The family of this 329-nucleotide RNA sequence from Teichococcus coralli is "Alphaproteobacteria transfer-messenger RNA". Rfam classes the family as a non-coding RNA gene. Clan: tRNA clan. The family's consensus secondary structure is taken from published work.
RNA sequence: CCCCUCGCAAUCGGGCGAGGGAGGGUCUAUAUCCGGCCUGCUCGCCUUCGGGCGGCUAUGGCGAUAAACGGCGUGUGGAAUAAGCGUUGCGGACCCGGGGGCAGUGCCCGGCGUCUCCACCAGUUUUGGCCCAGGCCUCGGCCUGUGGCUCGCAUGGGGACGAAACAGGCUCGACGCGCGCGGUAAAGACCCGUCUUUUGCCCGGCAUUGUACCACCGUCAUCGGGCUAUAUCACAAGUGCCAACGAUAACAGCCGCGAGGCUGUGGCGCUCGCUGCCUAAAUAGGUAAGCGCGGUCCGGGGGGAACCGGGCAACAGAAUCCCCCCACU
Numbered sequence: 001c002c003c004c005u006c007g008c009a010a011u012c013g014g015g016c017g018a019g020g021g022a023g024g025g026u027c028u029a030u031a032u033c034c035g036g037c038c039u040g041c042u043c044g045c046c047u048u049c050g051g052g053c054g055g056c057u058a059u060g061g062c063g064a065u066a067a068a069c070g071g072c073g074u075g076u077g078g079a080a081u082a083a084g085c086g087u088u089g090c091g092g093a094c095c096c097g098g099g100g101g102c103a104g105u106g107c108c109c110g111g112c113g114u115c116u117c118c119a120c121c122a123g124u125u126u127u128g129g130c131c132c133a134g135g136c137c138u139c140g141g142c143c144u145g146u147g148g149c150u151c152g153c154a155u156g157g158g159g160a161c162g163a164a165a166c167a168g169g170c171u172c173g174a175c176g177c178g179c180g181c182g183g184u185a186a187a188g189a190c191c192c193g194u195c196u197u198u199u200g201c202c203c204g205g206c207a208u209u210g211u212a213c214c215a216c217c218g219u220c221a222u223c224g225g226g227c228u229a230u231a232u233c234a235c236a237a238g239u240g241c242c243a244a245c246g247a248u249a250a251c252a253g254c255c256g257c258g259a260g261g262c263u264g265u266g267g268c269g270c271u272c273g274c275u276g277c278c279u280a281a282a283u284a285g286g287u288a289a290g291c292g293c294g295g296u297c298c299g300g301g302g303g304g305a306a307c308c309g310g311g312c313a314a315c316a317g318a319a320u321c322c323c324c325c326c327a328c329u
Stems, first nucleotide, its partner, number of pairs: 040056002043054003060202005070195004075190002085180003089177003095111005112162007203218003208229001210227001213225002293309004299326006